[Rfam]
RNA: c-di-GMP-I riboswitch aptamer
RNA sequence: CGGUGAGAAGGGCAAACCCAUCGAAAGGUGGGGACGCAAAGCCACCGGGCUAAAGCGCCGAAAAGCGCCACGCCAGCGGGGUUGCCGGC
Dot-bracket structure: ...........((...((((((....))))))...))..((((.((((((....((((......))))...)))..)))))))......